[Rfam]
This 94-nucleotide sequence from Branchiostoma floridae belongs to the Rfam family "mir-2060 microRNA precursor family".
RNA sequence: GUUUGCCUAUGUGUGGAUGGUGUUCAGUGCCAAGGAGAUAUUUGUUUGCCUAUGUGUGGAUGGUGUUCAGCACCAGGGACAGGCAUUGCUAUCU
Numbered sequence: 001g002u003u004u005g006c007c008u009a010u011g012u013g014u015g016g017a018u019g020g021u022g023u024u025c026a027g028u029g030c031c032a033a034g035g036a037g038a039u040a041u042u043u044g045u046u047u048g049c050c051u052a053u054g055u056g057u058g059g060a061u062g063g064u065g066u067u068c069a070g071c072a073c074c075a076g077g078g079a080c081a082g083g084c085a086u087u088g089c090u091a092u093c094u
Stems, first nucleotide, its partner, number of pairs: 004085005010079001018075007026067007034055001036053001038051001041048001

The family's consensus secondary structure was predicted with RNAalifold.